[Rfam]
RNA sequence: UGGACAAAUAUUGUAUUCUAGACUGUAUUCACGGUGUGAAAUAGGGAUUACAUCGUUUUUAAAACAGAAAGUGAAUCAAUUAAACAUAAUAGACUCCU
Numbered sequence: 001u002g003g004a005c006a007a008a009u010a011u012u013g014u015a016u017u018c019u020a021g022a023c024u025g026u027a028u029u030c031a032c033g034g035u036g037u038g039a040a041a042u043a044g045g046g047a048u049u050a051c052a053u054c055g056u057u058u059u060u061a062a063a064a065c066a067g068a069a070a071g072u073g074a075a076u077c078a079a080u081u082a083a084a085c086a087u088a089a090u091a092g093a094c095u096c097c098u
Stems, first nucleotide, its partner, number of pairs: 002097003009091006016084002021081002024078002027076006035066003038059005044053001
RNA: MIR6152 microRNA precursor family